[Rfam]
A member of the RNA family "T-box leader" from Paenibacillus ferrarius, 258 nucleotides long. On this family, see Grundy et al., J Bacteriol 1994: "Interaction between the acceptor end of tRNA and the T box stimulates antitermination in the Bacillus subtilis tyrS gene: a new role for the discriminator base". About the family: Uncharged tRNA acts as the effector for transcription antitermination of genes in the T-box leader family. T-boxes are found upstream of many aminoacyl-tRNA synthetase genes and some amino acid biosynthetic genes usually in Gram-positive bacteria. The anticodon of a specific tRNA base pairs to a specifier sequence within the T-box motif, and the NCCA acceptor tail of the tRNA base pairs to a conserved bulge in the T-box antiterminator hairpin. Lineage of the source: Bacteria > Bacillati > Bacilli > Caryophanales > Paenibacillus. It is annotated as a cis-regulatory leader. A search with the family's covariance model found it, with a score of 100 bits.
RNA sequence: ACGAACAUGGGCAAGGCCCUGAGUAGGAGAAAUGCCGCUGCAGCAGAGAGUCGGUGGAUGGUGCGAACCGAUGCAAGCAUAGCUUCGAAUUACAGUUCUGAGUUGGUUGAGGGAACAUGCUCAUUGCGGGCAUCAGUAGCUUAAACCCGGCAUUCAUAUGUCGUUAUUCAACUAAGUGAAAGAACAUACGAUGUGGAGAUCUCCAUGCGUAUUUCUUUAAUUAGGGUGGUACCGCGAGACAAUGUUCUCGUCCCUUUG
Numbered sequence: 001a002c003g004a005a006c007a008u009g010g011g012c013a014a015g016g017c018c019c020u021g022a023g024u025a026g027g028a029g030a031a032a033u034g035c036c037g038c039u040g041c042a043g044c045a046g047a048g049a050g051u052c053g054g055u056g057g058a059u060g061g062u063g064c065g066a067a068c069c070g071a072u073g074c075a076a077g078c079a080u081a082g083c084u085u086c087g088a089a090u091u092a093c094a095g096u097u098c099u100g101a102g103u104u105g106g107u108u109g110a111g112g113g114a115a116c117a118u119g120c121u122c123a124u125u126g127c128g129g130g131c132a133u134c135a136g137u138a139g140c141u142u143a144a145a146c147c148c149g150g151c152a153u154u155c156a157u158a159u160g161u162c163g164u165u166a167u168u169c170a171a172c173u174a175a176g177u178g179a180a181a182g183a184a185c186a187u188a189c190g191a192u193g194u195g196g197a198g199a200u201c202u203c204c205a206u207g208c209g210u211a212u213u214u215c216u217u218u219a220a221u222u223a224g225g226g227u228g229g230u231a232c233c234g235c236g237a238g239a240c241a242a243u244g245u246u247c248u249c250g251u252c253c254c255u256u257u258g
Base pairs, nucleotide, nucleotide: 007103008102015098016097018095026086027085028084029083039075040074041073050072051071052070053069054068055067106146107145108143109142110141111140148163149162150161151160152159179218180217181216182215183214184213223255224254225253226252234251235250236249237248238247